[Rfam]
A member of the RNA family "Coronavirus 3' UTR pseudoknot" from Mohoua ochrocephala, 64 nucleotides long.
Gene Ontology term of the family: viral genome replication.
From the family's description: Coronaviruses are plus-strand RNA viruses with ~30kb genomes. The 3' UTR region of coronavirus genomes contains a conserved ~55nt pseudoknot structure which has been shown to be necessary for viral genome replication. The mechanism of cis-regulation is unclear, but this element is postulated to function in the plus-strand. The seed alignment was expanded in 2020 by Eric Nawrocki.
By type it is a cis-regulatory element.
On this family, see Williams et al., J Virol 1999: "A phylogenetically conserved hairpin-type 3' untranslated region pseudoknot functions in coronavirus RNA replication".
Clan: Coronavirus 3' UTR.
It scores 37 bits against the family's covariance model.
RNA sequence: ACAGUCUUUCACAGAAAUAUAAGCAGGUAAAAAAGAAGCUAAAAAAAUACUUUUUUUUAAACCA
Numbered sequence: 001a002c003a004g005u006c007u008u009u010c011a012c013a014g015a016a017a018u019a020u021a022a023g024c025a026g027g028u029a030a031a032a033a034a035g036a037a038g039c040u041a042a043a044a045a046a047a048u049a050c051u052u053u054u055u056u057u058u059a060a061a062c063c064a
Base pairs, nucleotide, nucleotide: 007043008042009041012038028059029058030057031056032055033054034053035052036051